[Rfam]
RNA sequence: ACCGCUGAGCCAUCUCUCCAGCUCCGUAGUCUUAACUUUAAAAAAAAAUCUACCUAUGGGCUGGAGAGAUGGCUCAGUGGU
Numbered sequence: 001a002c003c004g005c006u007g008a009g010c011c012a013u014c015u016c017u018c019c020a021g022c023u024c025c026g027u028a029g030u031c032u033u034a035a036c037u038u039u040a041a042a043a044a045a046a047a048a049u050c051u052a053c054c055u056a057u058g059g060g061c062u063g064g065a066g067a068g069a070u071g072g073c074u075c076a077g078u079g080g081u
Stems, first nucleotide, its partner, number of pairs: 002080023
The family of this 81-nucleotide sequence from Nannospalax galili is "mir-3473 microRNA precursor family".
The source organism's lineage runs through Eukaryota, Teleostomi, Tetrapoda, Theria and Nannospalax.